[Rfam]
RNA sequence: GCGGAUGCCCUGGCAGGGUCGCACCGCUCAAACAAAGCGGCCCCGCCCCAUAACCCC
Numbered sequence: 001g002c003g004g005a006u007g008c009c010c011u012g013g014c015a016g017g018g019u020c021g022c023a024c025c026g027c028u029c030a031a032a033c034a035a036a037g038c039g040g041c042c043c044c045g046c047c048c049c050a051u052a053a054c055c056c057c
Base pairs, nucleotide, nucleotide: 001027002026003025004024013046016043017042018041020039021038022037

This 57-nucleotide sequence from uncultured Faecalibacterium sp. belongs to the Rfam family "RAGATH-5 RNA". The organism belongs to Faecalibacterium, within Bacteria. For this family Rfam cites "New classes of self-cleaving ribozymes revealed by comparative genomics analysis" (Weinberg et al., Nat Chem Biol, 2015).